[Rfam]
RNA: mir-970 microRNA precursor family
Organism: Ignelater luminosus
RNA sequence: UGAGUACAGCCCAGCGUGUGCCGUACUGAUAGUGUUAUUACUAGCUAUCAUAAGACACACGCGGCUAUACUCG
Numbered sequence: 001u002g003a004g005u006a007c008a009g010c011c012c013a014g015c016g017u018g019u020g021c022c023g024u025a026c027u028g029a030u031a032g033u034g035u036u037a038u039u040a041c042u043a044g045c046u047a048u049c050a051u052a053a054g055a056c057a058c059a060c061g062c063g064g065c066u067a068u069a070c071u072c073g
Stems, first nucleotide, its partner, number of pairs: 001073006008066004014062003019057002022054001027050005